[Rfam]
RNA sequence: CGACACAGCGUGGGAGAGCCGCUCAGGCGGCGCCGUAGGUGCAAUCCCUCCCCGGGAAACUCUCAGGCCCAGUACCGCGAUGUGCAG
Numbered sequence: 001c002g003a004c005a006c007a008g009c010g011u012g013g014g015a016g017a018g019c020c021g022c023u024c025a026g027g028c029g030g031c032g033c034c035g036u037a038g039g040u041g042c043a044a045u046c047c048c049u050c051c052c053c054g055g056g057a058a059a060c061u062c063u064c065a066g067g068c069c070c071a072g073u074a075c076c077g078c079g080a081u082g083u084g085c086a087g
Base pairs, nucleotide, nucleotide: 006082007081009079010078011077012076013075019030020029021028022027032068033067034066035064039062041060045055046054

Rfam assigns this 87-nucleotide RNA from Brevibacterium jeotgali to the family "Glycine riboswitch aptamer". Taxonomically the source falls in Brevibacterium (Bacteria, Bacillati, Actinomycetes, Brevibacteriaceae). Rfam describes the family as follows. This family represents the bacterial glycine riboswitch. A search with the family's covariance model found it, with a score of 54 bits.